c-di-AMP riboswitch aptamer (ydaO/yuaA leader): a 161-nucleotide RNA sequence from Thiemannella venezuelensis. A search with the family's covariance model found it, with a score of 81 bits.
RNA sequence: CGCGGCGGCCAGCCGAAUCCAUGCAGCCAGGAGGCAUGGAACCGGGGACCCAACCGGCCUCGAACACGUGGUCAGGGGUGAAUCGGCAUGUCGUCAUGCCGUAGGGCGCCUUCCCAGCCCGAAUCCGUCAGCUAACCCGGUAGGCAUCAGUGGAAGUCCCA
Numbered sequence: 001c002g003c004g005g006c007g008g009c010c011a012g013c014c015g016a017a018u019c020c021a022u023g024c025a026g027c028c029a030g031g032a033g034g035c036a037u038g039g040a041a042c043c044g045g046g047g048a049c050c051c052a053a054c055c056g057g058c059c060u061c062g063a064a065c066a067c068g069u070g071g072u073c074a075g076g077g078g079u080g081a082a083u084c085g086g087c088a089u090g091u092c093g094u095c096a097u098g099c100c101g102u103a104g105g106g107c108g109c110c111u112u113c114c115c116a117g118c119c120c121g122a123a124u125c126c127g128u129c130a131g132c133u134a135a136c137c138c139g140g141u142a143g144g145c146a147u148c149a150g151u152g153g154a155a156g157u158c159c160c161a
Stems, first nucleotide, its partner, number of pairs: 012145003018040007041141006051075001076126003084101004104120004